About this RNA: The family of this 67-nucleotide RNA sequence is "DUF3800-VIII RNA". By type it is a small RNA. About the family: Bacteroidetes, Cyanobacteria, Firmicutes, Planctomycetes (1 example), Proteobacteria, Tenericutes (1 example).

[Rfam]
RNA sequence: AAAGUCCUACUCGGAAGCGAAGGCCCUAGUUCCACUAAGGCGGUUUAUGUAGCUUAAGCGGGGCUUU
Numbered sequence: 001a002a003a004g005u006c007c008u009a010c011u012c013g014g015a016a017g018c019g020a021a022g023g024c025c026c027u028a029g030u031u032c033c034a035c036u037a038a039g040g041c042g043g044u045u046u047a048u049g050u051a052g053c054u055u056a057a058g059c060g061g062g063g064c065u066u067u
Base pairs, nucleotide, nucleotide: 001067002066003065004064005063006062007061008060010058011057014055016054017053018052023041024040025039027037028036029035030034